[Rfam]
RNA: Vault RNA
RNA sequence: GUGGAGGUGUAGCUCAGUGGUUACUUCGCGUCAAUCCAAGUAUUACUGCUCCAAUCCUUUGGUUACCAAACUCUGCAGGGUUCGAACCACGGGCGCUGUUCUCUGCUUUU
Number, nucleotide and partner (000 for none) at each position: 001g000002u105003g104004g103005a102006g101007g100008u000009g000010u000011a000012g094013c093014u092015c091016a000017g090018u089019g088020g087021u000022u000023a000024c000025u086026u085027c084028g083029c000030g000031u000032c000033a000034a000035u000036c000037c000038a000039a000040g000041u000042a000043u000044u000045a000046c000047u000048g000049c000050u000051c000052c000053a000054a000055u000056c000057c000058u000059u000060u000061g000062g000063u000064u000065a000066c000067c000068a000069a000070a000071c000072u000073c000074u000075g000076c000077a000078g000079g000080g000081u000082u000083c028084g027085a026086a025087c020088c019089a018090c017091g015092g014093g013094c012095g000096c000097u000098g000099u000100u007101c006102u005103c004104u003105g002106c000107u000108u000109u000110u000